[Rfam]
RNA sequence: UUAUAAGCAAAACUUUCCAUUUUUGAUUCACUCAUUAAAUGAUGUAUAUGGUCAAUAAUAAAGACUGUAUACAUCAUUUAAUGAAUGAAUCUAAAAUACAAAGUUUUGCUUAUAA
Numbered sequence: 001u002u003a004u005a006a007g008c009a010a011a012a013c014u015u016u017c018c019a020u021u022u023u024u025g026a027u028u029c030a031c032u033c034a035u036u037a038a039a040u041g042a043u044g045u046a047u048a049u050g051g052u053c054a055a056u057a058a059u060a061a062a063g064a065c066u067g068u069a070u071a072c073a074u075c076a077u078u079u080a081a082u083g084a085a086u087g088a089a090u091c092u093a094a095a096a097u098a099c100a101a102a103g104u105u106u107u108g109c110u111u112a113u114a115a
Stems, first nucleotide, its partner, number of pairs: 002114006009107005015101002019097005025091001027089004032084013049067004

This 115-nucleotide RNA sequence from Medicago truncatula belongs to the Rfam family "MIR2593 microRNA precursor family". Rfam 15.1 lists 1,262 matches to the family in 6 species. Its family is annotated with RISC complex and miRNA-mediated post-transcriptional gene silencing in the Gene Ontology. It scores 96 bits against the family's covariance model.